[Rfam]
RNA sequence: CAGCGUUCUCAGGGCGGGGCGGAAUUCCCCACCGGCGGUAUCCGUGGGCCGAAAGGUCUGCGGGAGCCCGCGAGCGCCUGCGGUGCCGCUGGGCAUGGCAGGGUCAGCAGACCUGGUGAGAGGCCAGGGCCGACGGUCACAGUCCGGAUGAAAGAGAUCGCGA
Dot-bracket structure: ..(((.((((......(((.......))).[[((((((...........................[[))))..((...............................))...(((((.......)))))]])).(((.....]]))).......)))).)))..

Shown here is a 163-nucleotide RNA from Acidovorax sp. RAC01, a member of the family "FMN riboswitch aptamer (RFN element)". The organism belongs to Acidovorax, within Bacteria. The match comes from Rfam's covariance-model search (95 bits). The base pairs follow the family's consensus structure, which is taken from published work.